[Rfam]
RNA sequence: CGGAGGAACUCUGGAGAAUCCCGUGCCAAGCGGGUGCCGAAGGUGCAAGGCGAAAGCCGAAUCUCUCAGGCAAAAGGACAGAGCGAGUGCC
Dot-bracket structure: ........(((((......((((.......)))).(((((..(.(...((......))....).))).))).......)))))........

This 91-nucleotide sequence from Firmicutes bacterium CAG:103 belongs to the Rfam family "Glycine riboswitch aptamer". The source organism's lineage runs through Bacteria, Bacillati and Bacillota.